[Rfam]
RNA sequence: UGACGGGGGCCCGCACAAGCGGUGGAGCAUGUGGUUUAAUUCGAUGAUACGCGAGGAACCUUACCAAGGCUUAAAUGCAUUUUGACGUACCCUGAAAGGGGUAUUUCUUCGGACAGGAUGCAAGGUGCUGCAUGGCUGUCGUCAGCUCGUGCCGUGAGGUGUUAGGUUAAGUCCUGCAACGAGCGCAACCCUUAUCUUUAGUUGCCAGCGUUUAAAGACGGGGACUCUAGAGAGACUGCCAACGCAAGUUGAGAGGAAGGUGGGGACGACGUCAAGUCAUCACGGCCCUUACGUCUUGGGCUACACACGUGCUACAAUGGUCGGUACAGAGGGCAGCUACUAUGUGAAUAGGUGCGAAUCUUGAAAGCCGAUCUCAGUUCGGAUUGGAGUCUGCAACUCGACUCUAUGAAGCUGGAAUCGCUAGUAAUCGCAAAUCAGCCAUGUUGCGGUGAAUACGUUCCCGGGCCUUGUACACACCGCCCGUCAAGCCAUGGAAGCUGGGGGUACCUGAAGUUGGUGACCGUCAAAGGAGCUACCUAGGGUAAAACCAGUAACUGGGGCUAAGUCGUAACAAGGUAGCCGUACCGGAAGGUGCGGCUG
Numbered sequence: 001u002g003a004c005g006g007g008g009g010c011c012c013g014c015a016c017a018a019g020c021g022g023u024g025g026a027g028c029a030u031g032u033g034g035u036u037u038a039a040u041u042c043g044a045u046g047a048u049a050c051g052c053g054a055g056g057a058a059c060c061u062u063a064c065c066a067a068g069g070c071u072u073a074a075a076u077g078c079a080u081u082u083u084g085a086c087g088u089a090c091c092c093u094g095a096a097a098g099g100g101g102u103a104u105u106u107c108u109u110c111g112g113a114c115a116g117g118a119u120g121c122a123a124g125g126u127g128c129u130g131c132a133u134g135g136c137u138g139u140c141g142u143c144a145g146c147u148c149g150u151g152c153c154g155u156g157a158g159g160u161g162u163u164a165g166g167u168u169a170a171g172u173c174c175u176g177c178a179a180c181g182a183g184c185g186c187a188a189c190c191c192u193u194a195u196c197u198u199u200a201g202u203u204g205c206c207a208g209c210g211u212u213u214a215a216a217g218a219c220g221g222g223g224a225c226u227c228u229a230g231a232g233a234g235a236c237u238g239c240c241a242a243c244g245c246a247a248g249u250u251g252a253g254a255g256g257a258a259g260g261u262g263g264g265g266a267c268g269a270c271g272u273c274a275a276g277u278c279a280u281c282a283c284g285g286c287c288c289u290u291a292c293g294u295c296u297u298g299g300g301c302u303a304c305a306c307a308c309g310u311g312c313u314a315c316a317a318u319g320g321u322c323g324g325u326a327c328a329g330a331g332g333g334c335a336g337c338u339a340c341u342a343u344g345u346g347a348a349u350a351g352g353u354g355c356g357a358a359u360c361u362u363g364a365a366a367g368c369c370g371a372u373c374u375c376a377g378u379u380c381g382g383a384u385u386g387g388a389g390u391c392u393g394c395a396a397c398u399c400g401a402c403u404c405u406a407u408g409a410a411g412c413u414g415g416a417a418u419c420g421c422u423a424g425u426a427a428u429c430g431c432a433a434a435u436c437a438g439c440c441a442u443g444u445u446g447c448g449g450u451g452a453a454u455a456c457g458u459u460c461c462c463g464g465g466c467c468u469u470g471u472a473c474a475c476a477c478c479g480c481c482c483g484u485c486a487a488g489c490c491a492u493g494g495a496a497g498c499u500g501g502g503g504g505u506a507c508c509u510g511a512a513g514u515u516g517g518u519g520a521c522c523g524u525c526a527a528a529g530g531a532g533c534u535a536c537c538u539a540g541g542g543u544a545a546a547a548c549c550a551g552u553a554a555c556u557g558g559g560g561c562u563a564a565g566u567c568g569u570a571a572c573a574a575g576g577u578a579g580c581c582g583u584a585c586c587g588g589a590a591g592g593u594g595c596g597g598c599u600g
Base pairs, nucleotide, nucleotide: 001474002473003471004470005469007468008467009466010465011464012463013462015458016457019421020420021419022418023417024315026313027312028311029310030309031308032307033306034304035303040055041054042053043052064299065298066297067296068295069294070293076122077121078120080118081117082116083115084114087104088103089102090101091100092099093098106113107112124288125287127286128285129284130283133282134281135277136276137275138273140271141270145184146183147182148181149180150179151160152159153158163176164175165174166173190265191264192263193262195233196232197231198230199229200228201227205222206221209220210219211218236256237255239253240251241250242249243248319373320372321371322370323369324368325367331362332361333360336355337354341350342349343348380411385406386405387404388403389402390401391400427450428449429448430447431446432445433444477575479572482568483567487562488561489560490559492557493556494555497552498551499550500549501548505544506543507542508541513537515535516534517533518532521530522529577600578599579598580597581596582595583594584593585592586591

Rfam assigns this 600-nucleotide part of an RNA from Candidatus Ornithobacterium hominis to the family "Bacterial small subunit ribosomal RNA". Clan: SSU clan. A reference for the family is Yusupov et al. (2001), "Crystal structure of the ribosome at 5.5 A resolution", Science.